[Rfam]
RNA sequence: UAACCCUAAUAGGGAAAGAUUUCAUCCCAGUACCCAGACACUGGGAUCCAGAAAACUUAAUUAUAAACGAGCACACUAUAUAACGUUUUCGAUGAAAUUGCAUGAGAAAUUGGAUUCCAUUGUCAAACACUGGAAUGACACCACCUGUGCAGCAGUU
Numbered sequence: 001u002a003a004c005c006c007u008a009a010u011a012g013g014g015a016a017a018g019a020u021u022u023c024a025u026c027c028c029a030g031u032a033c034c035c036a037g038a039c040a041c042u043g044g045g046a047u048c049c050a051g052a053a054a055a056c057u058u059a060a061u062u063a064u065a066a067a068c069g070a071g072c073a074c075a076c077u078a079u080a081u082a083a084c085g086u087u088u089u090c091g092a093u094g095a096a097a098u099u100g101c102a103u104g105a106g107a108a109a110u111u112g113g114a115u116u117c118c119a120u121u122g123u124c125a126a127a128c129a130c131u132g133g134a135a136u137g138a139c140a141c142c143a144c145c146u147g148u149g150c151a152g153c154a155g156u157u
Stems, first nucleotide, its partner, number of pairs: 010152001012150001020140001022138004027133005037124004042119010
RNA: Wolbachia sRNA 46
Organism: Parnassius apollo